Background
This 206-nucleotide sequence from Ructibacterium gallinarum belongs to the Rfam family "pemK RNA". NCBI's taxonomy places the organism under Bacteria, Bacillati, Clostridia, Oscillospiraceae, Ructibacterium.
RNA sequence: ACAAUGAUACUUCUGCCCAGCCACAGUCCGAGCGGAUAACAAUUCAGGGCUCCCACAAAAGCAUAGCUUUUGUGGGAAAAGAGAGCAAUCGCCGAUAAGCGAUGCUUUUGCCGACAGGCAAAACGAGCCUAAAGGCGAAUUGUGAACGCCGUCGCAGGCAAUGGGGGCAGCUCGGCUAGAAAAGCGGAGAGGUGAAAUUCCUAUGG
Numbered sequence: 001a002c003a004a005u006g007a008u009a010c011u012u013c014u015g016c017c018c019a020g021c022c023a024c025a026g027u028c029c030g031a032g033c034g035g036a037u038a039a040c041a042a043u044u045c046a047g048g049g050c051u052c053c054c055a056c057a058a059a060a061g062c063a064u065a066g067c068u069u070u071u072g073u074g075g076g077a078a079a080a081g082a083g084a085g086c087a088a089u090c091g092c093c094g095a096u097a098a099g100c101g102a103u104g105c106u107u108u109u110g111c112c113g114a115c116a117g118g119c120a121a122a123a124c125g126a127g128c129c130u131a132a133a134g135g136c137g138a139a140u141u142g143u144g145a146a147c148g149c150c151g152u153c154g155c156a157g158g159c160a161a162u163g164g165g166g167g168c169a170g171c172u173c174g175g176c177u178a179g180a181a182a183a184g185c186g187g188a189g190a191g192g193u194g195a196a197a198u199u200c201c202u203a204u205g206g
Stems, first nucleotide, its partner, number of pairs: 012203001013170006171189003175185003190202003
Dot-bracket structure: ...........(((((((..................................................................................................................................................))))))(((.(((.....))).)))(((.......))))...